Shown here is a 109-nucleotide sequence from Sorghum bicolor, a member of the family "MIR5565 microRNA precursor family". The family's consensus secondary structure was predicted with RNAalifold. Its family is annotated with miRNA-mediated post-transcriptional gene silencing and RISC complex in the Gene Ontology. The match comes from Rfam's covariance-model search (90 bits). The organism belongs to Sorghum, within Eukaryota.
RNA sequence: GCAGUCGGAUUCGCAUCAAUCCAUAUGUAUUUGGGUGGAUUGGAGUGGAACUUGAACUAAAUUCCACCCAAAUCCAUUCCAACACAUGUGGAUUGAGUUGAAUCCAAAA
Numbered sequence: 001g002c003a004g005u006c007g008g009a010u011u012c013g014c015a016u017c018a019a020u021c022c023a024u025a026u027g028u029a030u031u032u033g034g035g036u037g038g039a040u041u042g043g044a045g046u047g048g049a050a051c052u053u054g055a056a057c058u059a060a061a062u063u064c065c066a067c068c069c070a071a072a073u074c075c076a077u078u079c080c081a082a083c084a085c086a087u088g089u090g091g092a093u094u095g096a097g098u099u100g101a102a103u104c105c106a107a108a109a
Stems, first nucleotide, its partner, number of pairs: 005107001007105007016096013030082002035077007043069001045067003